Shown here is a 103-nucleotide sequence from Knoellia aerolata, a member of the family "mraW RNA".
[Rfam]
RNA sequence: UGACCACCCCGGCUCCCGGCCUCCAGCCGACCGGACUCCCGACACGACUUCCCCCGUGCCGGGCACCGGACGGAUGGGGACCAGGAGCCGGGAACCGGACACC
Numbered sequence: 001u002g003a004c005c006a007c008c009c010c011g012g013c014u015c016c017c018g019g020c021c022u023c024c025a026g027c028c029g030a031c032c033g034g035a036c037u038c039c040c041g042a043c044a045c046g047a048c049u050u051c052c053c054c055c056g057u058g059c060c061g062g063g064c065a066c067c068g069g070a071c072g073g074a075u076g077g078g079g080a081c082c083a084g085g086a087g088c089c090g091g092g093a094a095c096c097g098g099a100c101a102c103c
Stems, first nucleotide, its partner, number of pairs: 010090007018082002021079005027073003031069004038063004043058003
Overview
Taxonomically the source falls in Knoellia aerolata (Bacteria, Actinomycetota, Actinomycetes, Micrococcales). The base pairs follow the family's consensus structure, which is taken from published work.